TPP riboswitch aptamer (THI element): a 103-nucleotide RNA sequence from Paracoccus amoyensis.
[Rfam]
RNA sequence: AUCAUUCCGUUGGGGUGCCCCGUUCCGGGGCUGAGAGGCCAUGCGCUAACCCAUCGAACCUGAUCCGGGCAAUGCCGGCGUAGGGAACGGAGAGUGUAUGUGC
Numbered sequence: 001a002u003c004a005u006u007c008c009g010u011u012g013g014g015g016u017g018c019c020c021c022g023u024u025c026c027g028g029g030g031c032u033g034a035g036a037g038g039c040c041a042u043g044c045g046c047u048a049a050c051c052c053a054u055c056g057a058a059c060c061u062g063a064u065c066c067g068g069g070c071a072a073u074g075c076c077g078g079c080g081u082a083g084g085g086a087a088c089g090g091a092g093a094g095u096g097u098a099u100g101u102g103c
Base pairs, nucleotide, nucleotide: 006091007090008089009088010087011053012052013051014050017031018030019029020028021027038046039045059084060083061082062081065078066077067076068075
A search with the family's covariance model found it, with a score of 79 bits.